Shown here is a 97-nucleotide sequence from Macleaya cordata, a member of the family "Small nucleolar RNA snoR31/Z110/Z27".
Taxonomically the source falls in Macleaya (Eukaryota, Viridiplantae, Tracheophyta, Mesangiospermae).
Gene Ontology terms of the family: RNA processing and nucleolus.
Rfam describes the family as follows. This family contains several related snoRNAs including R31, Z27 and Z110.
The match comes from Rfam's covariance-model search (69 bits).
The literature on the family includes a 2001 paper in J Mol Biol by Barneche et al., "Identification of 66 box C/D snoRNAs in Arabidopsis thaliana: extensive gene duplications generated multiple isoforms predicting new ribosomal RNA 2'-O-methylation sites".
The family's RNA type in Rfam is C/D-box small nucleolar RNA.
RNA sequence: AACAUCAAGUGAUGAGUUCAGAAACAAUAUCUUAGGACACCUUCUGACACAGAAAAAAACUGUGUAUGAGAAAGAAAUUUCAUUUUCUGAUGAUGUU
Numbered sequence: 001a002a003c004a005u006c007a008a009g010u011g012a013u014g015a016g017u018u019c020a021g022a023a024a025c026a027a028u029a030u031c032u033u034a035g036g037a038c039a040c041c042u043u044c045u046g047a048c049a050c051a052g053a054a055a056a057a058a059a060c061u062g063u064g065u066a067u068g069a070g071a072a073a074g075a076a077a078u079u080u081c082a083u084u085u086u087c088u089g090a091u092g093a094u095g096u097u
Base pairs, nucleotide, nucleotide: 001097002096003095004094005093006092007091045051046050